The family of this 94-nucleotide RNA sequence from Ricinus communis is "MIR535 microRNA precursor family". The base pairs follow the family's consensus structure, which was predicted with RNAalifold. Lineage of the source: Eukaryota > Streptophyta > Tracheophyta > Euphyllophyta > Ricinus. A reference for the family is Zeng et al. (2010), "Conservation and divergence of microRNAs and their functions in Euphorbiaceous plants", Nucleic Acids Res.
[Rfam]
RNA sequence: UAUCUCAUUGACAACGAUAGGGAGCACGCUGGUGUGCAACCAUGUUCCUUACAUGAAGGCUAACAAGCGUGCUCUCUCUCGUUGUCAACAAAUG
Numbered sequence: 001u002a003u004c005u006c007a008u009u010g011a012c013a014a015c016g017a018u019a020g021g022g023a024g025c026a027c028g029c030u031g032g033u034g035u036g037c038a039a040c041c042a043u044g045u046u047c048c049u050u051a052c053a054u055g056a057a058g059g060c061u062a063a064c065a066a067g068c069g070u071g072c073u074c075u076c077u078c079u080c081g082u083u084g085u086c087a088a089c090a091a092a093u094g
Stems, first nucleotide, its partner, number of pairs: 009087005015081002019077002022074001024072007032064002